[Rfam]
RNA sequence: GCACAAUGAUGAUGAAUUGAUCAUUGUCCGAUUAAAUUCAUGACAGGAUAUAUAUCCUCCUACUCAUUCUGA
Numbered sequence: 001g002c003a004c005a006a007u008g009a010u011g012a013u014g015a016a017u018u019g020a021u022c023a024u025u026g027u028c029c030g031a032u033u034a035a036a037u038u039c040a041u042g043a044c045a046g047g048a049u050a051u052a053u054a055u056c057c058u059c060c061u062a063c064u065c066a067u068u069c070u071g072a
Base pairs, nucleotide, nucleotide: 006067007066008065009064027048028047